[Rfam]
RNA sequence: GGGUGUCGUUGGGUAACUGGUGUGCCCCCUGGUCUUCAAAACCUGUGCUGGACGUUAAGAGCGCCCUGGGUGAGUUCGAUUCUCACAGGCAUCC
Numbered sequence: 001g002g003g004u005g006u007c008g009u010u011g012g013g014u015a016a017c018u019g020g021u022g023u024g025c026c027c028c029c030u031g032g033u034c035u036u037c038a039a040a041a042c043c044u045g046u047g048c049u050g051g052a053c054g055u056u057a058a059g060a061g062c063g064c065c066c067u068g069g070g071u072g073a074g075u076u077c078g079a080u081u082c083u084c085a086c087a088g089g090c091a092u093c094c
Stems, first nucleotide, its partner, number of pairs: 001094007008086001011027005017022001029045001031043003048068001050066002071085004

A member of the RNA family "Selenocysteine transfer RNA" from Blautia sp. CAG:257, 94 nucleotides long. The family is grouped with related families in Rfam's "tRNA clan". The family's consensus secondary structure is taken from published work.